[Rfam]
RNA: Archaeal small subunit ribosomal RNA, nucleotides 859 to 1458
Organism: Thermoplasmatales archaeon SCGC AB-539-C06
RNA sequence: UGGCGGGGGAGCACAGCAACGGGUGGAGCGUGCGGUUUAAUUGGAUUCAACGCCGGAAAACUCACCGGAGGCGACGGUUACAUGAAGGCCAGGCUGAUGACCUUGCCAGAUUUUCCGAGAGGUGGUGCAUGGCCGCCGUCAGUUCGUACCGUAAGGCGUUCUGUUAAGUCAGACAACGAACGAGACCCUCAUCUUUAAUUGCUACUGGUAAGUUCGCUUACUGGGCACAUUAGAGAAACCGCUGGCGAUAAGUCAGAGGAAGGCGAGGGCAACGGUAGGUCAGUAUGCCCUGAAUCCUCCGGGCUACACGCGCGCUACAAAGGCUAGGACAAUGAGCUUCAACACCGAGAGGUGAAGGUAAUCUCGAAACCUAGUCGUAGUUCGGAUUGAGGGUUGAAACUCACCCUCAUGAAGCUGGAAUCCGUAGUAAUCGCGGAUCAACAUCCCGCGGUGAAUAUGCCCCUGCUCCUUGCACACACCGCCCGUCAAACCAUGCGAGUUGGGUUUGAGUGAGGAUGUAGUUUUUGCUACGUUCAAACUUAGGCUUAGUAAGCGGGGUUAAGUCGUAACAAGGUAUCCGUAGGGGAACCUGCGGAUGGA
Numbered sequence: 001u002g003g004c005g006g007g008g009g010a011g012c013a014c015a016g017c018a019a020c021g022g023g024u025g026g027a028g029c030g031u032g033c034g035g036u037u038u039a040a041u042u043g044g045a046u047u048c049a050a051c052g053c054c055g056g057a058a059a060a061c062u063c064a065c066c067g068g069a070g071g072c073g074a075c076g077g078u079u080a081c082a083u084g085a086a087g088g089c090c091a092g093g094c095u096g097a098u099g100a101c102c103u104u105g106c107c108a109g110a111u112u113u114u115c116c117g118a119g120a121g122g123u124g125g126u127g128c129a130u131g132g133c134c135g136c137c138g139u140c141a142g143u144u145c146g147u148a149c150c151g152u153a154a155g156g157c158g159u160u161c162u163g164u165u166a167a168g169u170c171a172g173a174c175a176a177c178g179a180a181c182g183a184g185a186c187c188c189u190c191a192u193c194u195u196u197a198a199u200u201g202c203u204a205c206u207g208g209u210a211a212g213u214u215c216g217c218u219u220a221c222u223g224g225g226c227a228c229a230u231u232a233g234a235g236a237a238a239c240c241g242c243u244g245g246c247g248a249u250a251a252g253u254c255a256g257a258g259g260a261a262g263g264c265g266a267g268g269g270c271a272a273c274g275g276u277a278g279g280u281c282a283g284u285a286u287g288c289c290c291u292g293a294a295u296c297c298u299c300c301g302g303g304c305u306a307c308a309c310g311c312g313c314g315c316u317a318c319a320a321a322g323g324c325u326a327g328g329a330c331a332a333u334g335a336g337c338u339u340c341a342a343c344a345c346c347g348a349g350a351g352g353u354g355a356a357g358g359u360a361a362u363c364u365c366g367a368a369a370c371c372u373a374g375u376c377g378u379a380g381u382u383c384g385g386a387u388u389g390a391g392g393g394u395u396g397a398a399a400c401u402c403a404c405c406c407u408c409a410u411g412a413a414g415c416u417g418g419a420a421u422c423c424g425u426a427g428u429a430a431u432c433g434c435g436g437a438u439c440a441a442c443a444u445c446c447c448g449c450g451g452u453g454a455a456u457a458u459g460c461c462c463c464u465g466c467u468c469c470u471u472g473c474a475c476a477c478a479c480c481g482c483c484c485g486u487c488a489a490a491c492c493a494u495g496c497g498a499g500u501u502g503g504g505u506u507u508g509a510g511u512g513a514g515g516a517u518g519u520a521g522u523u524u525u526u527g528c529u530a531c532g533u534u535c536a537a538a539c540u541u542a543g544g545c546u547u548a549g550u551a552a553g554c555g556g557g558g559u560u561a562a563g564u565c566g567u568a569a570c571a572a573g574g575u576a577u578c579c580g581u582a583g584g585g586g587a588a589c590c591u592g593c594g595g596a597u598g599g600a
Stems, first nucleotide, its partner, number of pairs: 001476002003473003007470007016460002020424005025318001027316008035307002041056004065302007075117003080111001087107003091103003121291002124289004130285002132280003135276004142181006149156002160173004187268004192236007202225002206223007239259002242256005322376007334365003339358002343354004383414001388409007430452007479573001481570001484566002487563001489560004494555003499550013514535009575598010